Description:
The family of this 93-nucleotide sequence from Campylobacter sputorum is "Selenocysteine transfer RNA". The family is grouped with related families in Rfam's "tRNA clan".
[Rfam]
RNA sequence: GGAAGGUAAAGCAUUCUGGUGAAUCUCGCGGACUUCAAAUCCGAGGACGGGGCAGUUGACUGUUUCGUGGGGAGUUCGAUUCUCUCACCUUCU
Numbered sequence: 001g002g003a004a005g006g007u008a009a010a011g012c013a014u015u016c017u018g019g020u021g022a023a024u025c026u027c028g029c030g031g032a033c034u035u036c037a038a039a040u041c042c043g044a045g046g047a048c049g050g051g052g053c054a055g056u057u058g059a060c061u062g063u064u065u066c067g068u069g070g071g072g073a074g075u076u077c078g079a080u081u082c083u084c085u086c087a088c089c090u091u092c093u
Stems, first nucleotide, its partner, number of pairs: 001093007011026001013024004027045001029043004047068007071085004